[Rfam]
RNA sequence: ACACCCGUUUUAUUGCUGUUAUGGGUUUGAACCGGAGCUUAGCCUUGUUCAUUUUUUUACACAAUAGCGAUGUAAAAAAUCUAACACGGCUCGCUGAGCGCCGCGCCAGACAAGGGCGCCAAGGGGGUUAAGAUGCCCUGAAACGCCCUAAAAAUGGCCACUGCGCCCCGUUUCAGGGCAA
Numbered sequence: 001a002c003a004c005c006c007g008u009u010u011u012a013u014u015g016c017u018g019u020u021a022u023g024g025g026u027u028u029g030a031a032c033c034g035g036a037g038c039u040u041a042g043c044c045u046u047g048u049u050c051a052u053u054u055u056u057u058u059a060c061a062c063a064a065u066a067g068c069g070a071u072g073u074a075a076a077a078a079a080u081c082u083a084a085c086a087c088g089g090c091u092c093g094c095u096g097a098g099c100g101c102c103g104c105g106c107c108a109g110a111c112a113a114g115g116g117c118g119c120c121a122a123g124g125g126g127g128u129u130a131a132g133a134u135g136c137c138c139u140g141a142a143a144c145g146c147c148c149u150a151a152a153a154a155u156g157g158c159c160a161c162u163g164c165g166c167c168c169c170g171u172u173u174c175a176g177g178g179c180a181a
Stems, first nucleotide, its partner, number of pairs: 023102002025099003034094001037092001042090003045086001047085003053079008165179002168176001
RNA: Pseudomonas sRNA P1